[Rfam]
RNA sequence: GUGGGAUAUGGUGACAUCUACCCAAAGACUCUUCUGGGUAAGAUUGUGGGAGGAUUGUGCUGCAUUGCCGGGGUGCUGGUGAUCGCUCUUCCCAUUCCAAUCAUCGUAAACAAU
Numbered sequence: 001g002u003g004g005g006a007u008a009u010g011g012u013g014a015c016a017u018c019u020a021c022c023c024a025a026a027g028a029c030u031c032u033u034c035u036g037g038g039u040a041a042g043a044u045u046g047u048g049g050g051a052g053g054a055u056u057g058u059g060c061u062g063c064a065u066u067g068c069c070g071g072g073g074u075g076c077u078g079g080u081g082a083u084c085g086c087u088c089u090u091c092c093c094a095u096u097c098c099a100a101u102c103a104u105c106g107u108a109a110a111c112a113a114u
Stems, first nucleotide, its partner, number of pairs: 001114002004111001007108005013102002020095001037077004049063001051061001
RNA: Potassium channel RNA editing signal